[Rfam]
RNA: Ribosomal protein L20 leader
RNA sequence: UGGUACAAGUAGAGGCACCCGCUUCUCACCUGCUUGACGCGUGAUUUGUUGUUGACAGGUUAUACACAAUCUCGGUUAUAGUAGAUCGUGAAACGUGGGUGUAGUAUGUAUACCGACGUUUUUUUUCGUAU
Dot-bracket structure: ..........((((((....)))))).(((.....(((((.......)).)))....))).................................(((.((((((.....)))))).))).............